RNA sequence: AGUUGAAUGUGUGCGGUUGUGGGGAUAUUGACGUGCUGGUGAGCUCCUUCAAGCUCGAGUGUGCGUCUUGCCACGGCCUUGAAGGAGUUCAGUGGUACAUCAAUGUCCAUGGCAUACUCAAGGCGGGAC
Number, nucleotide and partner (000 for none) at each position: 001a000002g000003u000004u000005g000006a000007a000008u000009g000010u000011g000012u000013g000014c000015g000016g000017u000018u114019g113020u112021g110022g000023g108024g107025a106026u105027a104028u103029u102030g101031a000032c000033g098034u097035g096036c095037u094038g093039g000040u091041g090042a089043g088044c087045u086046c085047c084048u083049u082050c081051a080052a000053g000054c000055u000056c075057g074058a000059g072060u000061g071062u070063g000064c000065g000066u000067c000068u000069u000070g062071c061072c059073a000074c057075g056076g000077c000078c000079u000080u051081g050082a049083a048084g047085g046086a045087g044088u043089u042090c041091a040092g000093u038094g037095g036096u035097a034098c033099a000100u000101c030102a029103a028104u027105g026106u025107c024108c023109a000110u021111g000112g020113c019114a018115u000116a000117c000118u000119c000120a000121a000122g000123g000124c000125g000126g000127g000128a000129c000

The family of this 129-nucleotide sequence from Physcomitrium patens is "MIR1222 microRNA precursor family".
Rfam 15.1 lists 5 matches to the family in 2 species.
Rfam's curators put it in the seed alignment.
On this family, see Axtell et al., Plant Cell 2007: "Common functions for diverse small RNAs of land plants".
Taxonomically the source falls in Physcomitrium (Eukaryota, Streptophytina, Embryophyta, Funariidae).